[Rfam]
MIR5225 microRNA precursor family: a 111-nucleotide RNA sequence from Trifolium medium. The organism belongs to Trifolium, within Eukaryota. Its family is annotated with RISC complex and miRNA-mediated post-transcriptional gene silencing in the Gene Ontology. It scores 75 bits against the family's covariance model. Pairs were carried over by alignment from the consensus structure, which was predicted with RNAalifold.

RNA sequence: UUUAGGGACUUCAGUCGCAGGAGAGAUGACACCUUAUGUAAUUAUUGUCUUGUGUGUAUAGUCAAUUUUAACAUGAGGUGUCAUCUUUUCUCGACUAAAUUCCACAUCAUU
Numbered sequence: 001u002u003u004a005g006g007g008a009c010u011u012c013a014g015u016c017g018c019a020g021g022a023g024a025g026a027u028g029a030c031a032c033c034u035u036a037u038g039u040a041a042u043u044a045u046u047g048u049c050u051u052g053u054g055u056g057u058a059u060a061g062u063c064a065a066u067u068u069u070a071a072c073a074u075g076a077g078g079u080g081u082c083a084u085c086u087u088u089u090c091u092c093g094a095c096u097a098a099a100u101u102c103c104a105c106a107u108c109a110u111u
Stems, first nucleotide, its partner, number of pairs: 005103003010099002014095004019091003023087007